[Rfam]
DUF805b RNA: a 35-nucleotide RNA from Alistipes sp. An66. Taxonomically the source falls in Alistipes (Bacteria, Pseudomonadati, Bacteroidia, Bacteroidales). The family's consensus secondary structure is taken from published work. By type it is a cis-regulatory element.

RNA sequence: ACAGAGGAGUCCGAAAAUCUGCAAAAGAGUAGGAA
Number, nucleotide and partner (000 for none) at each position: 001a000002c021003a020004g019005a018006g000007g000008a000009g000010u034011c033012c032013g000014a000015a000016a000017a000018u005019c004020u003021g002022c000023a000024a000025a000026a000027g000028a000029g000030u000031a000032g012033g011034a010035a000